Nucleotides: 138
Stems, first nucleotide, its partner, number of pairs: 001065008011056004018051002022045001024043004077133004082128001092126001098122003106114001
Number, partner (000 for none) and nucleotide at each position: 001065u002064g003063c004062u005061c006060c007059u008058g009000a010000c011056c012055u013054g014053g015000g016000a017000a018051g019050a020000a021000u022045g023000g024043c025042a026041u027040c028000a029000g030000u031000c032000a033000a034000g035000u036000u037000g038000g039000u040027g041026g042025u043024g044000a045022u046000c047000a048000u049000c050019u051018c052000a053014u054013c055012a056011g057000g058008c059007a060006g061005g062004g063003g064002c065001a066000a067000a068000a069000c070000a071000a072000u073000c074000c075000c076000u077133u078132g079131u080130u081000g082128a083000a084000c085000c086000c087000a088000g089000c090000u091000u092126g093000a094000c095000u096000u097000u098122u099121g100120g101000u102000u103000c104000a105000u106114g107000u108000c109000c110000a111000u112000u113000u114106c115000c116000c117000a118000u119000u120100u121099c122098a123000u124000a125000c126092c127000u128082u129000g130080g131079a132078c133077a134000c135000a136000u137000g138000g

Notes: The record is a 138-nucleotide RNA from Sciurus vulgaris, which matches "Small nucleolar RNA SNORA48" in Rfam. By type it is an H/ACA-box small nucleolar RNA. The family's consensus secondary structure was predicted with RNAalifold. The family is grouped with related families in Rfam's "SNORA48 clan". Lineage of the source: Eukaryota > Eumetazoa > Bilateria > Dipnotetrapodomorpha > Sciurus. Rfam describes the family as follows. The snoRNA ACA 48 has been identified to guide pseudouridylation of the residue U3797 in the 28S rRNA subunit.